Source information: Shown here is a 126-nucleotide sequence from Arabidopsis thaliana, a member of the family "MIR408 microRNA precursor family". The source organism's lineage runs through Eukaryota, Euphyllophyta, eudicotyledons, Brassicaceae and Arabidopsis. A reference for the family is Sunkar and Zhu (2004), "Novel and stress-regulated microRNAs and other small RNAs from Arabidopsis", Plant Cell. The base pairs follow the family's consensus structure, which was predicted with WAR. The match comes from Rfam's covariance-model search (68 bits).

RNA sequence: UAGAGAAAAAAAGAGGGAGCCAGGGAAGAGGCAGUGCAUGGGUAGAGACAAAACAGAGUCGUUUAAUGUUUUAGUAAACUCAAUCCAUGCUCUGCUUGUUCCCUGUCUCUCUCUCAUUACCGCUUU
Numbered sequence: 001u002a003g004a005g006a007a008a009a010a011a012a013g014a015g016g017g018a019g020c021c022a023g024g025g026a027a028g029a030g031g032c033a034g035u036g037c038a039u040g041g042g043u044a045g046a047g048a049c050a051a052a053a054c055a056g057a058g059u060c061g062u063u064u065a066a067u068g069u070u071u072u073a074g075u076a077a078a079c080u081c082a083a084u085c086c087a088u089g090c091u092c093u094g095c096u097u098g099u100u101c102c103c104u105g106u107c108u109c110u111c112u113c114u115c116a117u118u119a120c121c122g123c124u125u126u
Stems, first nucleotide, its partner, number of pairs: 017109003021105007029097006036090006045081002